Shown here is a 199-nucleotide sequence from Nyssa sinensis, a member of the family "small nucleolar RNA snoR127". Rfam links the family to the GO terms RNA processing and nucleolus. Pairs were carried over by alignment from the consensus structure, which was predicted with RNAalifold. On this family, see Chen and Wu, Nucleic Acids Res 2009: "Mining small RNA sequencing data: a new approach to identify small nucleolar RNAs in Arabidopsis". The source organism's lineage runs through Eukaryota, Viridiplantae, Magnoliopsida, Pentapetalae and Nyssa. The family's RNA type in Rfam is C/D-box small nucleolar RNA.

RNA sequence: CUGGAGUGAUGCAUCUUUUAGCCAAAUCAAGACAUUGAUGUGCUCCUGAAGGCAUCUUCUAUUUAAUCUUGUACCAGUUGUUAUUGCAGAGCCAUUCUAGUGACAUCUGUGAUACAGCCGUUCAAACUUUAAUGAGACACCUUUGGUUGAAGUGCUUCUCUCUGAUGAUAACACAGAGAUGGGUUGCUUGCUGACCAGA
Dot-bracket structure: ((((..............................................................................................................................................................................................)))).